Rfam assigns this 74-nucleotide RNA from Rubricoccus marinus to the family "tRNA".
From the family's description: Transfer RNA (tRNA) molecules are approximately 80 nucleotides in length.
Rfam links the family to the GO term triplet codon-amino acid adaptor activity.
A search with the family's covariance model found it, with a score of 67 bits.
RNA sequence: GCGCCCGUAGCUCAGCUGGAUAGAGUGUCGCACUACGAAUGCGAAGGUCAGAGGUUCGAAUCCUCUCGGGCGUA
Numbered sequence: 001g002c003g004c005c006c007g008u009a010g011c012u013c014a015g016c017u018g019g020a021u022a023g024a025g026u027g028u029c030g031c032a033c034u035a036c037g038a039a040u041g042c043g044a045a046g047g048u049c050a051g052a053g054g055u056u057c058g059a060a061u062c063c064u065c066u067c068g069g070g071c072g073u074a
Stems, first nucleotide, its partner, number of pairs: 001073007010026004028044005050066005